[Rfam]
RNA: Mammalian CPEB3 ribozyme
Organism: Alligator sinensis
RNA sequence: ACUGCAAGUUUGAGACCAUAGUAGCAGCCCUCCUCCAAAGGCUGGACAGUGUGGCCUGUCAGAUUCCAAUGAAUCUGCAAAUUCUGCU
Numbered sequence: 001a002c003u004g005c006a007a008g009u010u011u012g013a014g015a016c017c018a019u020a021g022u023a024g025c026a027g028c029c030c031u032c033c034u035c036c037a038a039a040g041g042c043u044g045g046a047c048a049g050u051g052u053g054g055c056c057u058g059u060c061a062g063a064u065u066c067c068a069a070u071g072a073a074u075c076u077g078c079a080a081a082u083u084c085u086g087c088u
Stems, first nucleotide, its partner, number of pairs: 016054002020088005026082001027052002060077007